About this RNA
Rfam assigns this 46-nucleotide RNA sequence from Bremerella alba to the family "Acido-Lenti-1 RNA". By type it is a small RNA. Lineage of the source: Bacteria > Planctomycetota > Pirellulales > Pirellulaceae > Bremerella.
[Rfam]
RNA sequence: CCAGGGGCAUACGCCCCUGGCUAUUAUCUUUCGCCCCAUUGGGGCA
Numbered sequence: 001c002c003a004g005g006g007g008c009a010u011a012c013g014c015c016c017c018u019g020g021c022u023a024u025u026a027u028c029u030u031u032c033g034c035c036c037c038a039u040u041g042g043g044g045c046a
Stems, first nucleotide, its partner, number of pairs: 001020008033045005